[Rfam]
RNA sequence: GGGGACGUGUCGUCACCGGUGUGGCGCCCGGUCUUCAAAACCGGUGGCAGGCUUUACGGUCUGCGGUAGGUUCGACUCCUAUGCGUCCCC
Numbered sequence: 001g002g003g004g005a006c007g008u009g010u011c012g013u014c015a016c017c018g019g020u021g022u023g024g025c026g027c028c029c030g031g032u033c034u035u036c037a038a039a040a041c042c043g044g045u046g047g048c049a050g051g052c053u054u055u056a057c058g059g060u061c062u063g064c065g066g067u068a069g070g071u072u073c074g075a076c077u078c079c080u081a082u083g084c085g086u087c088c089c090c
Base pairs, nucleotide, nucleotide: 001090002089003088004087005086006085007084008083009082011026012025013024014023015022016021028044029043030042031041032040047064048063049062050061051060067081068080069079070078
Shown here is a 90-nucleotide sequence from Desulfovibrio sp. 6_1_46AFAA, a member of the family "Selenocysteine transfer RNA".
The family's consensus secondary structure is taken from published work.
Lineage of the source: Bacteria > Thermodesulfobacteriota > Desulfovibrionia > Desulfovibrionaceae > Desulfovibrio.
A search with the family's covariance model found it, with a score of 82 bits.